[Rfam]
RNA sequence: AAUAAAAGAAGAGGUGCGCAAGCUACAGCGCUUUUGUGAAGAUCAUAACAUCUAGCGAUCAACAGCAAUAGAGCAAGCGCCGAAAGUAAUGAUGUGUUAUGGCUGAAUUACUUGGGUCUGCUGCUAAAAGGCAGCAGGACUGUCACGUCAACAAAGACGUGGGGCGCUUCGGUUGUA
Numbered sequence: 001a002a003u004a005a006a007a008g009a010a011g012a013g014g015u016g017c018g019c020a021a022g023c024u025a026c027a028g029c030g031c032u033u034u035u036g037u038g039a040a041g042a043u044c045a046u047a048a049c050a051u052c053u054a055g056c057g058a059u060c061a062a063c064a065g066c067a068a069u070a071g072a073g074c075a076a077g078c079g080c081c082g083a084a085a086g087u088a089a090u091g092a093u094g095u096g097u098u099a100u101g102g103c104u105g106a107a108u109u110a111c112u113u114g115g116g117u118c119u120g121c122u123g124c125u126a127a128a129a130g131g132c133a134g135c136a137g138g139a140c141u142g143u144c145a146c147g148u149c150a151a152c153a154a155a156g157a158c159g160u161g162g163g164g165c166g167c168u169u170c171g172g173u174u175g176u177a
Stems, first nucleotide, its partner, number of pairs: 008170004016080004022074003030066003034062003084113007094103002114141002117138008143162007

Rfam assigns this 177-nucleotide RNA from Cysteiniphilum litorale to the family "Lysine riboswitch aptamer". Pairs were carried over by alignment from the consensus structure, which is taken from published work.